[Rfam]
RNA sequence: AGAAAGGAGCAAUAACAAUCUUCUUGAUAUAACAAGAAAUUAGCUAUUGCUCCUUUAU
Numbered sequence: 001a002g003a004a005a006g007g008a009g010c011a012a013u014a015a016c017a018a019u020c021u022u023c024u025u026g027a028u029a030u031a032a033c034a035a036g037a038a039a040u041u042a043g044c045u046a047u048u049g050c051u052c053c054u055u056u057a058u
Stems, first nucleotide, its partner, number of pairs: 003056012018041001021038006
RNA: Plastid-psbA-4 3UTR RNA
Organism: Passiflora quadrangularis